RNA sequence: UUCGUAAUGCAGGGGAACCCCGAACCACACGAUGGCGACGGGUUGAGAUAGGCGGACGCCUGACCCUUAGAACCUGUUGGUUAACACCAUCGUAGGGAGCAACGUCAUGGACGAG
Numbered sequence: 001u002u003c004g005u006a007a008u009g010c011a012g013g014g015g016a017a018c019c020c021c022g023a024a025c026c027a028c029a030c031g032a033u034g035g036c037g038a039c040g041g042g043u044u045g046a047g048a049u050a051g052g053c054g055g056a057c058g059c060c061u062g063a064c065c066c067u068u069a070g071a072a073c074c075u076g077u078u079g080g081u082u083a084a085c086a087c088c089a090u091c092g093u094a095g096g097g098a099g100c101a102a103c104g105u106c107a108u109g110g111a112c113g114a115g
Base pairs, nucleotide, nucleotide: 008101009100010099011067012066013065014064017043018042019041020040050061051060052059053058073096074095075094076093078089079088080087

The record is a 115-nucleotide sequence from Bifidobacterium minimum, which matches "TPP riboswitch aptamer (THI element)" in Rfam. Taxonomically the source falls in Bifidobacterium (Bacteria, Bacillati, Actinomycetota, Bifidobacteriaceae). A search with the family's covariance model found it, with a score of 55 bits. Rfam describes the family as follows. Vitamin B(1) in its active form thiamin pyrophosphate (TPP) is an essential coenzyme that is synthesised by coupling of pyrimidine and thiazole moieties in bacteria.